[Rfam]
Nucleotides: 060
Stems, first nucleotide, its partner, number of pairs: 008055019
Number, partner (000 for none) and nucleotide at each position: 001000g002000g003000u004000c005000u006000u007000u008055g009054u010053g011052a012051g013050a014049a015048c016047c017046c018045u019044g020043u021042g022041a023040a024039u025038c026037a027000a028000g029000u030000a031000a032000c033000a034000u035000a036000g037026u038025g039024a040023u041022u042021c043020a044019c045018a046017g047016g048015g049014u050013u051012c052011u053010c054009g055008c056000c057000g058000g059000u060000u

The family of this 60-nucleotide RNA from Lonicera ferdinandi is "Plastid-ccsA-ndhD-2 3UTR RNA". The family has 421 seed sequences and 875 matches in Rfam 15.1. On this family, see Richter et al., Plant Commun 2023: "Retrograde signaling in plants: A critical review focusing on the GUN pathway and beyond". Lineage of the source: Eukaryota > Streptophyta > Gunneridae > Pentapetalae > Lonicera. Pairs were carried over by alignment from the consensus structure, which was predicted with LocARNA. Plastid ccsA-ndhD-2 is a non-coding RNA (ncRNA) recognised in plastids. It was found in the three prime untranslated region (3UTR) of ccsA and ndhD genes, its 3UTR location suggests a role in transcript maturation.